[Rfam]
Notes:
The record is a 58-nucleotide RNA sequence from Actinacidiphila guanduensis, which matches "msiK RNA" in Rfam. The family's RNA type in Rfam is cis-regulatory element. Lineage of the source: Bacteria > Bacillati > Actinomycetota > Kitasatosporales > Actinacidiphila. The family has 120 seed sequences and 1,374 matches in Rfam 15.1.
RNA sequence: GGAACGCUUCCUUUACUCGGAUCGUCCGGCACGUUCCUGCCGGUGAAGGGACUGCAAC
Numbered sequence: 001g002g003a004a005c006g007c008u009u010c011c012u013u014u015a016c017u018c019g020g021a022u023c024g025u026c027c028g029g030c031a032c033g034u035u036c037c038u039g040c041c042g043g044u045g046a047a048g049g050g051a052c053u054g055c056a057a058c
Stems, first nucleotide, its partner, number of pairs: 009050007026043006